Shown here is an 80-nucleotide RNA from Crocuta crocuta, a member of the family "Small nucleolar RNA U2-19".
The family's RNA type in Rfam is C/D-box small nucleolar RNA.
Rfam links the family to the GO terms RNA processing and nucleolus.
For this family Rfam cites "Guide RNAs with 5' Caps and Novel Box C/D snoRNA-like Domains for Modification of snRNAs in Metazoa" (Tycowski et al., Curr Biol, 2004).
RNA sequence: GUGUCUUGAUGGAAACAGCCAAAUUUGAGCCUCAGAAGACCUUUCAGUCUACCCAACGCAUGAUCUCUGUGGUUUUGAGA
Numbered sequence: 001g002u003g004u005c006u007u008g009a010u011g012g013a014a015a016c017a018g019c020c021a022a023a024u025u026u027g028a029g030c031c032u033c034a035g036a037a038g039a040c041c042u043u044u045c046a047g048u049c050u051a052c053c054c055a056a057c058g059c060a061u062g063a064u065c066u067c068u069g070u071g072g073u074u075u076u077g078a079g080a
Base pairs, nucleotide, nucleotide: 029059030058032056037050038049039048040047